[Rfam]
RNA sequence: AUCUUCUGUGCCUACUGAGCUGAUAACAGUUGAUAUUGUUUGCACUGGCUCAGUUCAGCAGGAACAGGAG
Numbered sequence: 001a002u003c004u005u006c007u008g009u010g011c012c013u014a015c016u017g018a019g020c021u022g023a024u025a026a027c028a029g030u031u032g033a034u035a036u037u038g039u040u041u042g043c044a045c046u047g048g049c050u051c052a053g054u055u056c057a058g059c060a061g062g063a064a065c066a067g068g069a070g
Base pairs, nucleotide, nucleotide: 003070004069005068006067008065009064011062012061013060015058016057017056018055019054020053021052022051023050027047028046029045030044
Shown here is a 70-nucleotide sequence from Callorhinchus milii, a member of the family "mir-24 microRNA precursor family". The family has 63 seed sequences and 1,372 matches in Rfam 15.1. About the family: This family represents the microRNA (miRNA) mir-24 family. miRNAs are transcribed as ~70nt precursors (modelled here) and subsequently processed by the Dicer enzyme to give a ~22nt product. In this case the mature sequence comes from the 3' arm of the precursor. The extents of the hairpin precursors are not generally known and are estimated based on hairpin prediction. The products are thought to have regulatory roles through complementarity to mRNA. The involvement of Dicer in miRNA processing suggests a relationship with the phenomenon of RNA interference. miRNAs are numbered based on the sequence of the mature RNA. miR-24 has been identified in human and mouse. Gene Ontology terms of the family: miRNA-mediated post-transcriptional gene silencing and RISC complex. A search with the family's covariance model found it, with a score of 83 bits.